[Rfam]
RNA sequence: AAAGUCCGACCGGGAGAAAAGACUUCACUCCCGUAGCUUGAGAGGCACCGUGGAGUGAAAAUGAAACGGUGAAGCCCUUUGACAACACACUCAAGGAGUGUGAGCGAAACUCCAGGUUGUAAUCACAAUGAACGUAGAUGUAGCCUCGUUACACGAAAUCCGGUGGCUGAGACGGUCGAUAACGUGCGAAAGCAACAAGUGCUGACCGAAAAGAGUCUGAAACGGCAGUGCUCACCGGCGGGGUAUCAACG
Numbered sequence: 001a002a003a004g005u006c007c008g009a010c011c012g013g014g015a016g017a018a019a020a021g022a023c024u025u026c027a028c029u030c031c032c033g034u035a036g037c038u039u040g041a042g043a044g045g046c047a048c049c050g051u052g053g054a055g056u057g058a059a060a061a062u063g064a065a066a067c068g069g070u071g072a073a074g075c076c077c078u079u080u081g082a083c084a085a086c087a088c089a090c091u092c093a094a095g096g097a098g099u100g101u102g103a104g105c106g107a108a109a110c111u112c113c114a115g116g117u118u119g120u121a122a123u124c125a126c127a128a129u130g131a132a133c134g135u136a137g138a139u140g141u142a143g144c145c146u147c148g149u150u151a152c153a154c155g156a157a158a159u160c161c162g163g164u165g166g167c168u169g170a171g172a173c174g175g176u177c178g179a180u181a182a183c184g185u186g187c188g189a190a191a192g193c194a195a196c197a198a199g200u201g202c203u204g205a206c207c208g209a210a211a212a213g214a215g216u217c218u219g220a221a222a223c224g225g226c227a228g229u230g231c232u233c234a235c236c237g238g239c240g241g242g243g244u245a246u247c248a249a250c251g
Stems, first nucleotide, its partner, number of pairs: 012032005021026001024222001034085001036083001041080003044076002046071006055062002140247001141245001143244006160238006166193003171187001172185003198232007206224001
Dot-bracket structure: ...........(((((....(..[.).))))).(.(....(((((((((((...((....))...))))))...)).)))..).)......................................................((.((((((...........(((((((((..((((........))).)...)))....(((((((.(...............].).)))))))))))))))))))).)....
Shown here is a 251-nucleotide sequence from Desulfofarcimen acetoxidans, a member of the family "Group II catalytic intron D1-D4-6". Rfam links the family to the GO term Group II intron splicing. Rfam describes the family as follows. Group II introns are found in rRNA, tRNA and mRNA of organelles in fungi, plants and protists, and also in mRNA in bacteria. Pairs were carried over by alignment from the consensus structure.